[Rfam]
Nucleotides: 156
Base pairs, nucleotide, nucleotide: 004056005055006054007053008052009051013049014048020043021042022041023040025039026038027037028036029035077098078097079096113156114155115154116153117152120148121147122146124144125143131138
Number, partner (000 for none) and nucleotide at each position: 001000c002000u003000g004056a005055c006054c007053u008052u009051a010000a011000a012000u013049g014048c015000c016000a017000g018000a019000a020043a021042u022041c023040u024000a025039u026038u027037g028036c029035c030000u031000a032000a033000c034000g035029g036028g037027c038026a039025a040023a041022g042021a043020u044000c045000c046000g047000c048014g049013c050000g051009u052008a053007a054006g055005g056004u057000a058000c059000a060000a061000a062000g063000g064000g065000a066000c067000a068000u069000g070000u071000a072000u073000c074000c075000c076000u077098g078097c079096u080000c081000c082000c083000g084000g085000c086000g087000a088000c089000a090000c091000c092000g093000g094000g095000a096079a097078g098077c099000a100000a101000a102000a103000g104000a105000a106000u107000g108000a109000a110000u111000u112000g113156c114155c115154g116153u117152g118000a119000a120148g121147g122146c123000u124144g125143c126000u127000u128000g129000u130000a131138a132000a133000a134000u135000u136000g137000a138131u139000g140000a141000a142000g143125g144124c145000u146122g147121u148120c149000a150000c151000g152117c153116a154115c155114g156113g